RNA sequence: UAAAAGGGUCUUUGCCGUCAGUGGCACUCAGUAGUUGCUUUGGCGCGUCUGGGCGGAAUCACAAUCAAGAGAUUUCGGAGGCGCAAUUUUUGUUACUUGUGGCAGCUGUAGCUUUGUAUAGCACGGCGCCCGG
Numbered sequence: 001u002a003a004a005a006g007g008g009u010c011u012u013u014g015c016c017g018u019c020a021g022u023g024g025c026a027c028u029c030a031g032u033a034g035u036u037g038c039u040u041u042g043g044c045g046c047g048u049c050u051g052g053g054c055g056g057a058a059u060c061a062c063a064a065u066c067a068a069g070a071g072a073u074u075u076c077g078g079a080g081g082c083g084c085a086a087u088u089u090u091u092g093u094u095a096c097u098u099g100u101g102g103c104a105g106c107u108g109u110a111g112c113u114u115u116g117u118a119u120a121g122c123a124c125g126g127c128g129c130c131c132g133g
Stems, first nucleotide, its partner, number of pairs: 008082005013026005027053005034046002036042001054077007101130003105127005111122003
Background:
The record is a 133-nucleotide sequence from Acanthosepion pharaonis, which matches "U11 spliceosomal RNA" in Rfam. Taxonomically the source falls in Acanthosepion (Eukaryota, Metazoa, Spiralia, Mollusca). The family's RNA type in Rfam is spliceosomal small nuclear RNA.